[Rfam]
RNA sequence: UCAUAUGUUAUCAAUAUUCCAAAGACAGUAACGGCAGAUUUGCUUAAUAAGGUUACCGAGGGUUGAUGCACUGAGAUGCUCAUUUUUACCCGUGCUUUGGUGCGGGUUUUUCUUUGAAUAU
Number, nucleotide and partner (000 for none) at each position: 001u000002c000003a000004u000005a000006u000007g000008u000009u000010a000011u000012c000013a000014a000015u000016a000017u000018u000019c000020c000021a000022a000023a000024g000025a000026c000027a000028g056029u055030a054031a053032c052033g000034g043035c042036a041037g000038a000039u000040u000041u036042g035043c034044u000045u000046a000047a000048u000049a000050a000051g000052g032053u031054u030055a029056c028057c000058g000059a000060g000061g000062g000063u000064u000065g000066a000067u000068g000069c000070a000071c000072u000073g000074a000075g000076a000077u000078g000079c000080u000081c000082a000083u000084u000085u000086u000087u000088a000089c106090c105091c104092g103093u102094g101095c100096u000097u000098u000099g000100g095101u094102g093103c092104g091105g090106g089107u000108u000109u000110u000111u000112c000113u000114u000115u000116g000117a000118a000119u000120a000121u000